This 115-nucleotide RNA from Gambusia affinis belongs to the Rfam family "Small nucleolar RNA SNORD67". It scores 78 bits against the family's covariance model. The base pairs follow the family's consensus structure.

RNA sequence: UGUGAGAGUGAUGAGUUGCACUAAUCAGUUGGGGUGUUUGCUGCAGUGGCAUCAGCAUCCCAAUCCGAUCCGAUAUGAGGAGACAAAAUGUGCGCUGGGGCCAUCUGACUACACC
Numbered sequence: 001u002g003u004g005a006g007a008g009u010g011a012u013g014a015g016u017u018g019c020a021c022u023a024a025u026c027a028g029u030u031g032g033g034g035u036g037u038u039u040g041c042u043g044c045a046g047u048g049g050c051a052u053c054a055g056c057a058u059c060c061c062a063a064u065c066c067g068a069u070c071c072g073a074u075a076u077g078a079g080g081a082g083a084c085a086a087a088a089u090g091u092g093c094g095c096u097g098g099g100g101c102c103a104u105c106u107g108a109c110u111a112c113a114c115c
Base pairs, nucleotide, nucleotide: 004114006112007110008109025068026067028065029063030062031061032060034058035057036056040053042051043050044049
Lineage of the source: Eukaryota > Gnathostomata > Euteleosteomorpha > Percomorphaceae > Gambusia.
A reference for the family is Huttenhofer et al. (2001), "RNomics: an experimental approach that identifies 201 candidates for novel, small, non-messenger RNAs in mouse", EMBO J.